[Rfam]
Shown here is a 178-nucleotide RNA sequence from Lutibaculum baratangense, a member of the family "caulobacter sRNA CC2171".
Pairs were carried over by alignment from the consensus structure, which was predicted with RNAalifold.
On this family, see Landt et al., Mol Microbiol 2008: "Small non-coding RNAs in Caulobacter crescentus".
By type it is a small RNA.
RNA sequence: CAACAGCAGAAAGGAGGUGAUCCAGUGUCUCAUUGUCUUACGCCGCGUGCUUCGGCUGCACUGACCUGGAUUCGUGCCUCUGCAGGAAUCCGCGCUGCCUGAUCUCGCAGGCAUCGCACCGGUCUUGGAGCCCGCUCCGCGGACCGACAAUGGAAGGGUCGUCGCUUGCGGCGGCCCU
Numbered sequence: 001c002a003a004c005a006g007c008a009g010a011a012a013g014g015a016g017g018u019g020a021u022c023c024a025g026u027g028u029c030u031c032a033u034u035g036u037c038u039u040a041c042g043c044c045g046c047g048u049g050c051u052u053c054g055g056c057u058g059c060a061c062u063g064a065c066c067u068g069g070a071u072u073c074g075u076g077c078c079u080c081u082g083c084a085g086g087a088a089u090c091c092g093c094g095c096u097g098c099c100u101g102a103u104c105u106c107g108c109a110g111g112c113a114u115c116g117c118a119c120c121g122g123u124c125u126u127g128g129a130g131c132c133c134g135c136u137c138c139g140c141g142g143a144c145c146g147a148c149a150a151u152g153g154a155a156g157g158g159u160c161g162u163c164g165c166u167u168g169c170g171g172c173g174g175c176c177c178u
Stems, first nucleotide, its partner, number of pairs: 016023002031152007044069001047066001050063001070089003090127001092125001093122001095121001097119001101115003104110001132142004155178010